[Rfam]
This 53-nucleotide RNA sequence from Streptomyces sp. AJS327 belongs to the Rfam family "L17-Actino-Proteobacteria ribosomal protein leader". The source organism's lineage runs through Bacteria, Bacillati, Actinomycetota, Actinomycetes and Streptomyces. The family's RNA type in Rfam is cis-regulatory leader.
Nucleotides: 053
Stems, first nucleotide, its partner, number of pairs: 001016003004012002023053003027050007
Number, partner (000 for none) and nucleotide at each position: 001016c002015c003014g004012g005011u006000a007000c008000c009000u010000c011005a012004c013000a014003c015002g016001g017000c018000c019000g020000g021000a022000u023053c024052u025051g026000c027050c028049a029048c030047c031046g032045g033044u034000a035000c036000c037000u038000g039000a040000c041000a042000c043000g044033g045032c046031c047030g048029g049028u050027g051025c052024a053023g